[Rfam]
RNA sequence: UGAGUAGGUCGGAUGGUCGCGGGUUUGUGCCCGAGGAAAGUCCGAGCUCCACAGGGCAGGGUGCUGGGUAACACCCAGUGAGGGCGACCUCAAGGAAAGUGCAACAGAAAUAUACCGCCCGGUAAAAGCUUUUACCGGGUAAGGGUGGAAAGGUGAGGUAAGAGCUCACCAGCGGUCAGGCGACUGGCCGGCUAUGUAAACCCCACCUGGAGCAAGACCAAAUAGGGGAGCAUAUGCGGUGGCCCGCCGCGCUCCCGGGUGUGGUCGCUAGAGGUGUCAGGCAACUGUCACCCAAGAUAGAUGACCAUCCUCGACAGAACUCGGCUUACAGACCUACUCAUCCU
Number, nucleotide and partner (000 for none) at each position: 001u340002g339003a338004g337005u336006a335007g334008g333009u332010c331011g329012g309013a308014u307015g306016g305017u304018c303019g000020c033021g032022g031023g030024u029025u000026u000027g000028u000029g024030c023031c022032c021033g020034a000035g000036g000037a000038a327039a326040g325041u000042c324043c323044g322045a321046g320047c212048u211049c210050c209051a000052c000053a000054g245055g244056g243057c242058a000059g208060g207061g206062u205063g204064c078065u077066g076067g075068g074069u000070a000071a000072c000073a000074c068075c067076c066077a065078g064079u093080g091081a090082g089083g088084g000085c000086g000087a000088c083089c082090u081091c080092a000093a079094g203095g202096a000097a000098a000099g201100u200101g197102c196103a195104a000105c000106a000107g000108a000109a000110a000111u000112a000113u000114a000115c144116c143117g140118c139119c138120c137121g136122g135123u134124a133125a132126a000127a000128g000129c000130u000131u000132u125133u124134a123135c122136c121137g120138g119139g118140u117141a000142a000143g116144g115145g000146u000147g000148g000149a000150a000151a000152g170153g169154u168155g167156a166157g165158g000159u000160a000161a000162g000163a000164g000165c157166u156167c155168a154169c153170c152171a000172g192173c190174g189175g188176u187177c186178a185179g184180g000181c000182g000183a000184c179185u178186g177187g176188c175189c174190g173191g000192c172193u000194a000195u103196g102197u101198a000199a000200a100201c099202c095203c094204c063205a062206c061207c060208u059209g050210g049211a048212g047213c000214a000215a000216g266217a265218c264219c263220a000221a000222a000223u000224a000225g000226g256227g255228g254229a253230g252231c251232a000233u000234a000235u000236g250237c249238g248239g247240u246241g000242g057243c056244c055245c054246g240247c239248c238249g237250c236251g231252c230253u229254c228255c227256c226257g000258g000259g000260u000261g000262u000263g219264g218265u217266c216267g000268c000269u000270a000271g000272a000273g292274g291275u290276g289277u000278c287279a286280g285281g000282c000283a000284a000285c280286u279287g278288u000289c276290a275291c274292c273293c000294a000295a000296g000297a000298u000299a000300g000301a000302u000303g018304a017305c016306c015307a014308u013309c012310c000311u000312c000313g000314a000315c000316a000317g000318a000319a000320c046321u045322c044323g043324g042325c040326u039327u038328a000329c011330a000331g010332a009333c008334c007335u006336a005337c004338u003339c002340a001341u000342c000343c000344u000

The record is a 344-nucleotide sequence from Fervidicola ferrireducens, which matches "Bacterial RNase P class A" in Rfam. The family's RNA type in Rfam is ribozyme. Lineage of the source: Bacteria > Bacillota > Clostridia > Thermosediminibacterales > Fervidicola. Pairs were carried over by alignment from the consensus structure, which is taken from published work.